Mammalian CPEB3 ribozyme: a 76-nucleotide sequence from Crocodylus porosus. Rfam's curators write: The mammalian CPEB3 ribozyme is a self cleaving RNA located in the second intron of the CPEB3 gene which belongs to a family of genes regulating messenger RNA polyadenylation. NCBI's taxonomy places the organism under Eukaryota, Bilateria, Craniata, Teleostomi, Crocodylus. The family's consensus secondary structure is taken from published work. A search with the family's covariance model found it, with a score of 50 bits.
RNA sequence: AUAACUCUUUGUUGGCCAUAGCAGAAGCGCUCACAUCACAGCCCUGUCAGAUUCCAAUGGAUCUGUGAACUCUGCU
Number, nucleotide and partner (000 for none) at each position: 001a000002u000003a000004a000005c000006u000007c000008u000009u000010u000011g044012u000013u000014g043015g042016c041017c000018a000019u000020a076021g075022c074023a073024g072025a071026a000027g039028c000029g037030c000031u000032c000033a000034c000035a000036u000037c029038a000039c027040a000041g016042c015043c014044c011045u000046g000047u000048c065049a064050g063051a062052u061053u060054c059055c000056a000057a000058u000059g054060g053061a052062u051063c050064u049065g048066u000067g000068a000069a000070c000071u025072c024073u023074g022075c021076u020